[Rfam]
This 285-nucleotide RNA sequence from Candidatus Methanogaster sp. belongs to the Rfam family "Group II catalytic intron D1-D4-6".
RNA sequence: AAAAUCAGAGCCUCGAGGAAAGGCUAUCUACCACCUCAGAACUAAAACCCCGCACGCAAUCCGGUAACGGGCUGUUGUGAGGCCGGGGGGGAUGGGAUACCAGGCCACAACGAAAGGUGUUCGGUUAUACGCCCCGAAAUUCUGAUGAUUCCGGAAGCCGACGUUGUCUGUGUGACGGAAACGCUGCAUUCACACCACCGUUAGUCGGGUCCUCCGGUCUUGGAAUGUAGCAGAGAGUUCUGGGACAUUGCGAGGUAAUGUGAGUCCGAGCGGGGUCUCAGACCG
Number, nucleotide and partner (000 for none) at each position: 001a000002a000003a000004a000005u000006c000007a000008g000009a000010g000011c000012c039013u038014c000015g037016a036017g035018g000019a000020a000021a000022g032023g031024c000025u000026a000027u000028c000029u000030a000031c023032c022033a000034c000035c017036u016037c015038a013039g012040a000041a000042c095043u094044a093045a000046a000047a000048c088049c087050c086051c000052g083053c079054a078055c077056g076057c074058a073059a000060u071061c070062c069063g068064g000065u000066a000067a000068c063069g062070g061071g060072c000073u058074g057075u000076u056077g055078u054079g053080a000081g000082g000083c052084c000085g000086g050087g049088g048089g000090g000091g000092a000093u044094g043095g042096g000097a000098u000099a000100c000101c000102a000103g000104g000105c000106c000107a000108c000109a000110a000111c000112g000113a000114a000115a000116g000117g000118u000119g000120u000121u000122c000123g000124g000125u000126u000127a000128u000129a000130c000131g276132c275133c274134c273135c272136g271137a000138a000139a000140u000141u000142c000143u000144g000145a000146u000147g000148a000149u000150u270151c000152c268153g267154g266155a000156a265157g184158c183159c000160g000161a000162c177163g176164u175165u174166g000167u000168c000169u000170g000171u000172g000173u000174g165175a164176c163177g162178g000179a000180a000181a000182c000183g158184c157185u000186g000187c000188a000189u264190u263191c262192a261193c260194a259195c000196c000197a256198c255199c254200g000201u000202u000203a000204g000205u000206c000207g000208g000209g000210u000211c000212c000213u000214c000215c000216g000217g000218u000219c000220u000221u000222g000223g000224a000225a000226u000227g000228u000229a000230g000231c000232a000233g000234a000235g000236a000237g000238u000239u000240c000241u000242g000243g000244g000245a000246c000247a000248u000249u000250g000251c000252g000253a000254g199255g198256u197257a000258a000259u194260g193261u192262g191263a190264g189265u156266c154267c153268g152269a000270g150271c136272g135273g134274g133275g132276u131277c000278u000279c000280a000281g000282a000283c000284c000285g000